[Rfam]
RNA sequence: UCGUAGCGAGUCUUGGAGGGCUAAAGGUAACUUUAGCUUUUAAGCGUAGACAGUUAGGUAACGGGCCGAAAGCCAAAUGGUUGAAGGGAUUGAGCUCCAUAAUGUUAGUAAAUCGAGAGGGCUGAUGCCUUACGCACAGCAGAAAGCUACAUUUUAUCUUUCGUUAAGGGCAAGAAGGAUAAAACCUCUCUGGAGUCAGAGACCU
Numbered sequence: 001u002c003g004u005a006g007c008g009a010g011u012c013u014u015g016g017a018g019g020g021c022u023a024a025a026g027g028u029a030a031c032u033u034u035a036g037c038u039u040u041u042a043a044g045c046g047u048a049g050a051c052a053g054u055u056a057g058g059u060a061a062c063g064g065g066c067c068g069a070a071a072g073c074c075a076a077a078u079g080g081u082u083g084a085a086g087g088g089a090u091u092g093a094g095c096u097c098c099a100u101a102a103u104g105u106u107a108g109u110a111a112a113u114c115g116a117g118a119g120g121g122c123u124g125a126u127g128c129c130u131u132a133c134g135c136a137c138a139g140c141a142g143a144a145a146g147c148u149a150c151a152u153u154u155u156a157u158c159u160u161u162c163g164u165u166a167a168g169g170g171c172a173a174g175a176a177g178g179a180u181a182a183a184a185c186c187u188c189u190c191u192g193g194a195g196u197c198a199g200a201g202a203c204c205u
Stems, first nucleotide, its partner, number of pairs: 004056004010051004014046002016041011091199001092197001094196006115190006121147003126141003152184011

Description: A member of the RNA family "Group II catalytic intron D1-D4-6" from Peribacillus saganii, 205 nucleotides long. Lineage of the source: Bacteria > Bacillati > Bacilli > Bacillaceae > Peribacillus. Pairs were carried over by alignment from the consensus structure. Gene Ontology term of the family: Group II intron splicing. Rfam's curators write: Group II introns are found in rRNA, tRNA and mRNA of organelles in fungi, plants and protists, and also in mRNA in bacteria.